[Rfam]
RNA sequence: CUGGAAUGAUGAAAGUUAGCCAAAUCGUAUAAUGAUGUGCUCCACCUGGUGUCAUUUUAGUCUGUGCAAUUGGUGAAUUUUUCUUCUUUCCCAAGCACAAGAUGAGAUGACUGGUGUUGAAGUUUGCAUCACUAUGUGAUGAUAGAAAUUGAGAUUGGUAACUUGCUGACCAGA
Numbered sequence: 001c002u003g004g005a006a007u008g009a010u011g012a013a014a015g016u017u018a019g020c021c022a023a024a025u026c027g028u029a030u031a032a033u034g035a036u037g038u039g040c041u042c043c044a045c046c047u048g049g050u051g052u053c054a055u056u057u058u059a060g061u062c063u064g065u066g067c068a069a070u071u072g073g074u075g076a077a078u079u080u081u082u083c084u085u086c087u088u089u090c091c092c093a094a095g096c097a098c099a100a101g102a103u104g105a106g107a108u109g110a111c112u113g114g115u116g117u118u119g120a121a122g123u124u125u126g127c128a129u130c131a132c133u134a135u136g137u138g139a140u141g142a143u144a145g146a147a148a149u150u151g152a153g154a155u156u157g158g159u160a161a162c163u164u165g166c167u168g169a170c171c172a173g174a
Stems, first nucleotide, its partner, number of pairs: 001173004

small nucleolar RNA snoR127: a 174-nucleotide RNA from Miscanthus lutarioriparius. It is annotated as a C/D-box small nucleolar RNA.